[Rfam]
RNA sequence: CUUCAAGGACCCCAGCCACAGGGGUCGUUCCGCGUCCCGCUCCUGCCCGUAGGUGGCCAACAGCGCCUGCGCCUC
Numbered sequence: 001c002u003u004c005a006a007g008g009a010c011c012c013c014a015g016c017c018a019c020a021g022g023g024g025u026c027g028u029u030c031c032g033c034g035u036c037c038c039g040c041u042c043c044u045g046c047c048c049g050u051a052g053g054u055g056g057c058c059a060a061c062a063g064c065g066c067c068u069g070c071g072c073c074u075c
Stems, first nucleotide, its partner, number of pairs: 015025003031071003038065002044059002047056003
The family of this 75-nucleotide sequence from Streptomyces ambofaciens is "ASpks TB sRNA".